[Rfam]
The family of this 58-nucleotide RNA from Georgenia muralis is "Guanidine-II riboswitch aptamer (mini-ykkC)".
RNA sequence: CGGCGAGGACGACCUCGCCGAGGUCCUGGCCCGGCUCGGGGACGGGUGGGUCGCCCCG
Number, nucleotide and partner (000 for none) at each position: 001c020002g019003g018004c017005g016006a015007g014008g013009a000010c000011g000012a000013c008014c007015u006016c005017g004018c003019c002020g001021a000022g000023g000024u000025c000026c000027u000028g000029g000030c000031c000032c000033g000034g000035c000036u000037c058038g057039g056040g055041g054042a000043c000044g000045g000046g000047u000048g000049g000050g000051u000052c000053g000054c041055c040056c039057c038058g037
Pairs were carried over by alignment from the consensus structure, which is taken from published work. The source organism's lineage runs through Bacteria, Bacillati, Actinomycetota, Allobogoriellales and Georgenia. About the family: Simpler in structure and has fewer highly conserved nucleotide positions than the ykkC-yxkD leader.